[Rfam]
Makes More Granules Regulator RNA (mmgR): a 73-nucleotide sequence from Muricoccus nepalensis. The organism belongs to Muricoccus, within Bacteria. The pairing is the family consensus, mapped onto this sequence. It scores 54 bits against the family's covariance model.
RNA sequence: GGCUGCUGCUUUCUUGGACGUUUCCUCCCUAAACUCGGCGGCGGCUUCGGCUGCCGUCUUUUUUUUGGUCCAG
Numbered sequence: 001g002g003c004u005g006c007u008g009c010u011u012u013c014u015u016g017g018a019c020g021u022u023u024c025c026u027c028c029c030u031a032a033a034c035u036c037g038g039c040g041g042c043g044g045c046u047u048c049g050g051c052u053g054c055c056g057u058c059u060u061u062u063u064u065u066u067g068g069u070c071c072a073g
Stems, first nucleotide, its partner, number of pairs: 008019001010017002037058009